[Rfam]
Shown here is a 158-nucleotide RNA from Myotis davidii, a member of the family "U1 spliceosomal RNA".

RNA sequence: GGAGCUACCUGGCAGGGGAGAGACCAUGAUCAGAAGGUGGUUCUCCCAGGGCGAGGCUUGUCCCUUGCACUCCAGAUGUGCUGACUCCUGCCAUUUCCCCGGGGGAAGCGCGACUGAUCAUUUGUGGCAGUGGGGGACUGCGUUCGCGCUCUCCCCUG
Dot-bracket structure: ............(((((((((.(((((.........)))))))))))((((.(.(((.((((............)))).)))..))))).(..(((.((...)))).)...).)))...............((((((..(((....)))..)))))).
By type it is a spliceosomal small nuclear RNA. On this family, see Kretzner et al., Proc Natl Acad Sci U S A 1990: "Saccharomyces cerevisiae U1 small nuclear RNA secondary structure contains both universal and yeast-specific domains". A search with the family's covariance model found it, with a score of 102 bits. The source organism's lineage runs through Eukaryota, Deuterostomia, Craniata, Yangochiroptera and Myotis.